[Rfam]
RNA sequence: UAACAAGGACGACCUUGUUAUCAAGUGCUCAAGACUAUUUUCGGGACGACCCGA
Numbered sequence: 001u002a003a004c005a006a007g008g009a010c011g012a013c014c015u016u017g018u019u020a021u022c023a024a025g026u027g028c029u030c031a032a033g034a035c036u037a038u039u040u041u042c043g044g045g046a047c048g049a050c051c052c053g054a
Stems, first nucleotide, its partner, number of pairs: 001020008041054005
RNA: Guanidine-II riboswitch aptamer (mini-ykkC)
Organism: Psychromonas algarum